[Rfam]
RNA: SAM riboswitch aptamer (S box leader)
RNA sequence: CUCUUAUCCAGAGAGGCGGAGGGACUAGGCCCGAUGAAGCCCGGCAACCAACAAACCACAUUCGGUUUGGAAAGGUGCCAAUUCCUACAGAUCAUUUUUCGAUCUGACAGAUAAGAG
Number, nucleotide and partner (000 for none) at each position: 001c117002u116003c115004u114005u113006a112007u111008c110009c000010a000011g000012a000013g042014a000015g041016g040017c039018g000019g000020a000021g032022g031023g030024a000025c000026u087027a086028g085029g084030c023031c022032c021033g000034a000035u000036g000037a000038a000039g017040c016041c015042c013043g079044g078045c077046a076047a000048c075049c074050a000051a000052c069053a068054a067055a066056c065057c000058a000059c000060a000061u000062u000063c000064g000065g056066u055067u054068u053069g052070g000071a000072a000073a000074g049075g048076u046077g045078c044079c043080a000081a000082u000083u109084c029085c028086u027087a026088c106089a105090g104091a103092u102093c101094a000095u000096u000097u000098u000099u000100c000101g093102a092103u091104c090105u089106g088107a000108c000109a083110g008111a007112u006113a005114a004115g003116a002117g001